[Rfam]
RNA sequence: AAGGUUCCGGUUCACGCCCCUGAGCACUCGGCGACCCGGCGACC
Numbered sequence: 001a002a003g004g005u006u007c008c009g010g011u012u013c014a015c016g017c018c019c020c021u022g023a024g025c026a027c028u029c030g031g032c033g034a035c036c037c038g039g040c041g042a043c044c
Base pairs, nucleotide, nucleotide: 003044004043005042007039008038009037010036015033016032017031018030022027

The family of this 44-nucleotide RNA from Couchioplanes caeruleus is "L31-Actinobacteria ribosomal protein leader". Taxonomically the source falls in Couchioplanes caeruleus (Bacteria, Actinomycetes, Micromonosporales, Couchioplanes).